[Rfam]
RNA: ASpks TB sRNA
Organism: Kutzneria sp. 744
RNA sequence: CUUGAUCGACCCCAGCCACAGCGGCUCAUCGCGAUCCUGACCAUAGGUCGCCAACAAGGCCUGAGCCUC
Dot-bracket structure: .............((((.....))))..((.(.....((.(.(....).).)).....)...)).....